Overview
The family of this 425-nucleotide part of an RNA from Auriculariales sp. MPI-PUGE-AT-0066 is "Eukaryotic large subunit ribosomal RNA". The source organism's lineage runs through Eukaryota, Opisthokonta, Fungi, Basidiomycota and Auriculariales.
RNA sequence: UGGCCUCAAAUCAGGUAGGACUACCCGCUGAACUUAAGCAUAUCAAUAAGCGGAGGAAAAGAAACUAACAAGGAUUCCCCUAGUAACGGCGAGUGAAGCGGGAAGAGCUCAAAUUUGAAAUCUGGCGGUCUAAGGCUGUCCGAGUUGUAAUCUAGAGAGGUGUUUUCCGUGCCGGACCGCAUACAAGUCCCUUGGAACAGGGCGUCAUAGAGGGUGAGAAUCCCGUCCAUGAUGCGGACUACCGGUGCUCUGUGAUACACCUUCAAAGAGUCGAGUUGUUUGGGAAUGCAGCUCAAAAUGGGUGGUAAAUUCCAUCUAAAGCUAAAUACAGGCGAGAGACCGAUAGCGAACAAGUACCGUGAGGGAAAGAUGAAAAGAACUUUGGAAAGAGAGUUAAACAGUACGUGAAAUUGUUGAAAGGGAAA
Number, nucleotide and partner (000 for none) at each position: 001u000002g000003g000004c000005c000006u000007c000008a000009a000010a000011u000012c000013a000014g000015g000016u000017a000018g000019g000020a000021c000022u000023a000024c055025c053026c052027g051028c050029u049030g000031a000032a000033c000034u000035u042036a041037a000038g000039c000040a000041u036042a035043u000044c000045a000046a000047u000048a000049a029050g028051c027052g026053g025054a000055g024056g000057a000058a000059a000060a000061g000062a000063a000064a000065c072066u071067a000068a000069c000070a000071a066072g065073g000074a000075u000076u103077c102078c101079c100080c000081u000082a000083g000084u000085a000086a094087c093088g000089g000090c000091g000092a000093g087094u086095g000096a000097a000098g000099c000100g079101g078102g077103a076104a000105g000106a323107g322108c321109u320110c000111a000112a000113a151114u150115u149116u000117g000118a146119a145120a000121u143122c142123u000124g140125g139126c138127g137128g000129u000130c000131u000132a000133a000134g000135g000136c000137u127138g126139u125140c124141c000142g122143a121144g000145u119146u118147g000148u000149a115150a114151u113152c000153u000154a000155g000156a000157g264158a263159g261160g260161u259162g258163u000164u257165u000166u255167c254168c000169g248170u247171g246172c245173c244174g243175g242176a000177c237178c236179g235180c234181a233182u232183a000184c000185a000186a000187g203188u000189c202190c201191c200192u199193u000194g000195g000196a000197a000198c000199a192200g191201g190202g189203c187204g000205u000206c210207a000208u000209a000210g206211a000212g000213g223214g222215u000216g000217a000218g000219a000220a000221u000222c214223c213224c000225g000226u000227c000228c000229a000230u000231g000232a182233u181234g180235c179236g178237g177238a000239c000240u000241a000242c175243c174244g173245g172246u171247g170248c169249u000250c000251u000252g000253u000254g167255a166256u000257a164258c162259a161260c160261c159262u000263u158264c157265a000266a000267a000268g000269a000270g000271u000272c000273g294274a293275g292276u291277u290278g289279u288280u000281u000282g000283g000284g000285a000286a000287u000288g279289c278290a277291g276292c275293u274294c273295a000296a000297a000298a000299u000300g317301g316302g315303u314304g313305g000306u000307a000308a000309a000310u000311u000312c000313c304314a303315u302316c301317u300318a000319a000320a109321g108322c107323u106324a000325a000326a000327u000328a000329c000330a000331g000332g000333c000334g000335a000336g000337a000338g000339a000340c000341c000342g000343a000344u000345a000346g000347c000348g000349a000350a000351c000352a000353a000354g000355u000356a000357c364358c363359g000360u000361g000362a000363g358364g357365g000366a000367a000368a000369g000370a000371u000372g000373a000374a000375a000376a000377g000378a000379a000380c391381u390382u389383u388384g000385g000386a000387a000388a383389g382390a381391g380392a000393g000394u000395u000396a000397a000398a000399c000400a000401g000402u000403a000404c000405g000406u000407g000408a000409a000410a000411u000412u000413g000414u000415u000416g000417a000418a000419a000420g000421g000422g000423a000424a000425a000
Clan: LSU clan.